The family of this 80-nucleotide sequence from Medicago truncatula is "MIR5269 microRNA precursor family". The base pairs follow the family's consensus structure, which was predicted with RNAalifold. Rfam links the family to the GO terms RISC complex and miRNA-mediated post-transcriptional gene silencing. Taxonomically the source falls in Medicago (Eukaryota, Streptophyta, Spermatophyta, Mesangiospermae). A search with the family's covariance model found it, with a score of 83 bits.
RNA sequence: UUGGGUGAAAACAAUGUGGGACCUACACUUUGGAAAUGAAUUCCACAUAAAGUGGUGAGACAUACAUUGAUUUCACCCAA
Number, nucleotide and partner (000 for none) at each position: 001u080002u079003g078004g077005g076006u075007g074008a073009a072010a071011a000012c069013a068014a067015u066016g065017u064018g063019g000020g000021a000022c000023c000024u057025a056026c054027a053028c052029u051030u050031u049032g048033g000034a000035a000036a000037u000038g000039a000040a000041u000042u000043c000044c000045a000046c000047a000048u032049a031050a030051a029052g028053u027054g026055g000056u025057g024058a000059g000060a000061c000062a000063u018064a017065c016066a015067u014068u013069g012070a000071u010072u009073u008074c007075a006076c005077c004078c003079a002080a001